[Rfam]
RNA sequence: GAAGGCCUCUGCAGGGUUUGCUUUGAGGUACUUCCUUCCUGUCAACCCUGUUCUGGAGUCUGU
Dot-bracket structure: ..((((.(((((((((((.((...((((.....))))...)).))))))))...)))))))..
Numbered sequence: 001g002a003a004g005g006c007c008u009c010u011g012c013a014g015g016g017u018u019u020g021c022u023u024u025g026a027g028g029u030a031c032u033u034c035c036u037u038c039c040u041g042u043c044a045a046c047c048c049u050g051u052u053c054u055g056g057a058g059u060c061u062g063u
Stems, first nucleotide, its partner, number of pairs: 003061004008057003011051008020042002025037004
A member of the RNA family "mir-1205 microRNA precursor family" from Pongo pygmaeus, 63 nucleotides long. Rfam's curators put it in the seed alignment.